[Rfam]
RNA sequence: UCCUCUUCAACGCUGCGUUUCUAUGCUACAAACGGAGAGCCUGCGAAAGCAGUGCUUUCGAAUCUAUUACAAGCAUAUGAGAAAUUCGGAGAAUCCGCUUCACUCUUUGGCUCGUCCGUCUGCGCUUUCGGGCGUCCGAUGGGUCGCGGGCUCUGCCGGUGACGGCUUGGCGCGAUCACGCGUCUGUAAUUGGCAUCAGAAAAGCAGGGCAUGGGGCUGCCCCGUGGCAACGCGGGUGUUGGUUUCCAUGUUUCCUCUGGGAGAGCCGUUACGAAGCUUGUGCCCAACACUUGAGUGCAAUACGCAGCGUGCGGUCUCGUCUCCUCUGGGGAUGAGGCCGCACAAUUCGAUUCCGAUUAUUCUGUUGAGGA
Numbered sequence: 001u002c003c004u005c006u007u008c009a010a011c012g013c014u015g016c017g018u019u020u021c022u023a024u025g026c027u028a029c030a031a032a033c034g035g036a037g038a039g040c041c042u043g044c045g046a047a048a049g050c051a052g053u054g055c056u057u058u059c060g061a062a063u064c065u066a067u068u069a070c071a072a073g074c075a076u077a078u079g080a081g082a083a084a085u086u087c088g089g090a091g092a093a094u095c096c097g098c099u100u101c102a103c104u105c106u107u108u109g110g111c112u113c114g115u116c117c118g119u120c121u122g123c124g125c126u127u128u129c130g131g132g133c134g135u136c137c138g139a140u141g142g143g144u145c146g147c148g149g150g151c152u153c154u155g156c157c158g159g160u161g162a163c164g165g166c167u168u169g170g171c172g173c174g175a176u177c178a179c180g181c182g183u184c185u186g187u188a189a190u191u192g193g194c195a196u197c198a199g200a201a202a203a204g205c206a207g208g209g210c211a212u213g214g215g216g217c218u219g220c221c222c223c224g225u226g227g228c229a230a231c232g233c234g235g236g237u238g239u240u241g242g243u244u245u246c247c248a249u250g251u252u253u254c255c256u257c258u259g260g261g262a263g264a265g266c267c268g269u270u271a272c273g274a275a276g277c278u279u280g281u282g283c284c285c286a287a288c289a290c291u292u293g294a295g296u297g298c299a300a301u302a303c304g305c306a307g308c309g310u311g312c313g314g315u316c317u318c319g320u321c322u323c324c325u326c327u328g329g330g331g332a333u334g335a336g337g338c339c340g341c342a343c344a345a346u347u348c349g350a351u352u353c354c355g356a357u358u359a360u361u362c363u364g365u366u367g368a369g370g371a
Stems, first nucleotide, its partner, number of pairs: 001371004008364002012308007022077004035059006087355005098276004155166004169184005186272004192267003206256003309343015
RNA: Nuclear RNase P